[Rfam]
Nucleotides: 083
Stems, first nucleotide, its partner, number of pairs: 002082003006078004014070004019065005028056005034051003037044001
Number, partner (000 for none) and nucleotide at each position: 001000g002082g003081c004080c005000a006078g007077u008076g009075u010000u011000g012000a013000g014070a015069g016068g017067c018000u019065g020064a021063g022062g023061c024000u025000u026000g027000a028056g029055c030054a031053a032052u033000u034051g035050c036049u037044g038000c039000c040000g041000c042000u043000g044037c045000g046000a047000g048000a049036g050035g051034c052032a053031u054030u055029g056028c057000a058000c059000u060000u061023g062022u063021c064020u065019c066000g067017g068016u069015c070014u071000g072000a073000c074000a075009g076008u077007g078006c079000u080004g081003g082002c083000a
mir-25 microRNA precursor family: an 83-nucleotide sequence from Acipenser ruthenus. Its family is annotated with miRNA-mediated post-transcriptional gene silencing and RISC complex in the Gene Ontology. The source organism's lineage runs through Eukaryota, Gnathostomata, Actinopterygii, Acipenserinae and Acipenser. The literature on the family includes a 2010 paper in BMC Genomics by Linsen et al., "Small RNA expression and strain specificity in the rat". A search with the family's covariance model found it, with a score of 76 bits.